[Rfam]
RNA: CRISPR RNA direct repeat element
RNA sequence: GUAGCGCCCGCCCUUUGGGGUGGGCGAGGAUUGAAAC
Numbered sequence: 001g002u003a004g005c006g007c008c009c010g011c012c013c014u015u016u017g018g019g020g021u022g023g024g025c026g027a028g029g030a031u032u033g034a035a036a037c
Base pairs, nucleotide, nucleotide: 005026006025007024008023009022010021011020012019013018